[Rfam]
RNA sequence: CGGCCCGCGCUCCGCGGGUCGUCUACCCGGGUACCUGACACGGCCCGAGAGA
Numbered sequence: 001c002g003g004c005c006c007g008c009g010c011u012c013c014g015c016g017g018g019u020c021g022u023c024u025a026c027c028c029g030g031g032u033a034c035c036u037g038a039c040a041c042g043g044c045c046c047g048a049g050a051g052a
Base pairs, nucleotide, nucleotide: 001021002020003019004018005017006016007015008014009013022052023051024050026049028047029046030045031044032043